[Rfam]
RNA sequence: GCGUCAGCUUUAGCUCACUGGUUGCUUCACAGCACCAACUUUCGAGCAAGUUCGAGCCUGUCUCACCGUGGGCGCUGCUUGGCGUUUUU
Numbered sequence: 001g002c003g004u005c006a007g008c009u010u011u012a013g014c015u016c017a018c019u020g021g022u023u024g025c026u027u028c029a030c031a032g033c034a035c036c037a038a039c040u041u042u043c044g045a046g047c048a049a050g051u052u053c054g055a056g057c058c059u060g061u062c063u064c065a066c067c068g069u070g071g072g073c074g075c076u077g078c079u080u081g082g083c084g085u086u087u088u089u
Stems, first nucleotide, its partner, number of pairs: 002084006013073004019068003026056003

A member of the RNA family "Vault RNA" from Scyliorhinus torazame, 89 nucleotides long. A search with the family's covariance model found it, with a score of 44 bits. It is annotated as a non-coding RNA gene. The source organism's lineage runs through Eukaryota, Eumetazoa, Craniata, Scyliorhinidae and Scyliorhinus.